A member of the RNA family "mir-515 microRNA precursor family" from Callithrix jacchus, 84 nucleotides long. The match comes from Rfam's covariance-model search (70 bits).
RNA sequence: UCUCAUGCUGUGACCCUCCAAAGGAAAGCACUUUCUGUUAGAAAGAAAUGAUUGUGUUUUCCUUUAGAGAGUUGUCGUCUGAGA
Numbered sequence: 001u002c003u004c005a006u007g008c009u010g011u012g013a014c015c016c017u018c019c020a021a022a023g024g025a026a027a028g029c030a031c032u033u034u035c036u037g038u039u040a041g042a043a044a045g046a047a048a049u050g051a052u053u054g055u056g057u058u059u060u061c062c063u064u065u066a067g068a069g070a071g072u073u074g075u076c077g078u079c080u081g082a083g084a
Stems, first nucleotide, its partner, number of pairs: 001084005007078002010075005016069003020065012034051002039048001
On this family, see Bentwich et al., Nat Genet 2005: "Identification of hundreds of conserved and nonconserved human microRNAs". Rfam 15.1 lists 1,056 matches to the family in 27 species. Clan: mir-290 clan.